[Rfam]
RNA: Group I catalytic intron
Organism: Thermaerobacillus caldiproteolyticus
RNA sequence: AAGCUUGUGUCAAUAAGGGCACACUUCAGUGGUGACACUGUCGAUUAAACCUCGUGAAUUCAGGGAAAGGGAGCUAUGGGACUACAAGGUAUGUAAUAACCCAAUGUUUCUUCCAAUAGUUUCCCCAACCCUGAGCCAAGCCUCAAAUUUCCGUUUGAGGAAGGUGCAGAGACUAUCGAAAUCACUCCAACAUGAAGCGAGUAAGAGUAGUGUUGGAGGAAGAGAGUAGAGUACAUCGUUAUGAUGGAAGCGCGAGGGUUCUUAUUCAAUAUCGCAGUUGAAUAAGAAUAUGAUAUAGUCCACCUGUUUUUCCAAACAGAU
Numbered sequence: 001a002a003g004c005u006u007g008u009g010u011c012a013a014u015a016a017g018g019g020c021a022c023a024c025u026u027c028a029g030u031g032g033u034g035a036c037a038c039u040g041u042c043g044a045u046u047a048a049a050c051c052u053c054g055u056g057a058a059u060u061c062a063g064g065g066a067a068a069g070g071g072a073g074c075u076a077u078g079g080g081a082c083u084a085c086a087a088g089g090u091a092u093g094u095a096a097u098a099a100c101c102c103a104a105u106g107u108u109u110c111u112u113c114c115a116a117u118a119g120u121u122u123c124c125c126c127a128a129c130c131c132u133g134a135g136c137c138a139a140g141c142c143u144c145a146a147a148u149u150u151c152c153g154u155u156u157g158a159g160g161a162a163g164g165u166g167c168a169g170a171g172a173c174u175a176u177c178g179a180a181a182u183c184a185c186u187c188c189a190a191c192a193u194g195a196a197g198c199g200a201g202u203a204a205g206a207g208u209a210g211u212g213u214u215g216g217a218g219g220a221a222g223a224g225a226g227u228a229g230a231g232u233a234c235a236u237c238g239u240u241a242u243g244a245u246g247g248a249a250g251c252g253c254g255a256g257g258g259u260u261c262u263u264a265u266u267c268a269a270u271a272u273c274g275c276a277g278u279u280g281a282a283u284a285a286g287a288a289u290a291u292g293a294u295a296u297a298g299u300c301c302a303c304c305u306g307u308u309u310u311u312c313c314a315a316a317c318a319g320a321u
Stems, first nucleotide, its partner, number of pairs: 006023006028039003050257004055252002060134006069125005135165002141159001143157001169301001171300005260287011307318001309316002